msiK RNA: a 59-nucleotide sequence from Trueperella bialowiezensis. The family has 120 seed sequences and 1,374 matches in Rfam 15.1. Pairs were carried over by alignment from the consensus structure, which is taken from published work. The match comes from Rfam's covariance-model search (63 bits).
[Rfam]
RNA sequence: CUCCGGCACCUUUCACAACGGAUCGUCCGGCACGUACCUGCCGGUGGAGGGACCAUUCA
Numbered sequence: 001c002u003c004c005g006g007c008a009c010c011u012u013u014c015a016c017a018a019c020g021g022a023u024c025g026u027c028c029g030g031c032a033c034g035u036a037c038c039u040g041c042c043g044g045u046g047g048a049g050g051g052a053c054c055a056u057u058c059a
Base pairs, nucleotide, nucleotide: 009051010050011049012048013047014046015045027044028043029042030041031040032039